[Rfam]
RNA sequence: UACGAUGUCCGGGCCCCUCUGGCGAGAGAACUGCGGCACUCUCGUGAUGUCGGCAUCGCAG
Numbered sequence: 001u002a003c004g005a006u007g008u009c010c011g012g013g014c015c016c017c018u019c020u021g022g023c024g025a026g027a028g029a030a031c032u033g034c035g036g037c038a039c040u041c042u043c044g045u046g047a048u049g050u051c052g053g054c055a056u057c058g059c060a061g
Base pairs, nucleotide, nucleotide: 006055007054009053010052011051012050022045023044024043025042026041027040028039
terC RNA: a 61-nucleotide sequence from Cereibacter changlensis. It scores 48 bits against the family's covariance model. It is annotated as a cis-regulatory element.